[Rfam]
RNA: mir-252 microRNA precursor family
RNA sequence: UUCUGUUCCUAAGUACUCCGUGCCGCAGGAGUGUGUUGUGAAGGCUCCUGCUGUUCAAGUGCUUAUCAAUGGGA
Numbered sequence: 001u002u003c004u005g006u007u008c009c010u011a012a013g014u015a016c017u018c019c020g021u022g023c024c025g026c027a028g029g030a031g032u033g034u035g036u037u038g039u040g041a042a043g044g045c046u047c048c049u050g051c052u053g054u055u056c057a058a059g060u061g062c063u064u065a066u067c068a069a070u071g072g073g074a
Stems, first nucleotide, its partner, number of pairs: 001074007010065008020056001025051007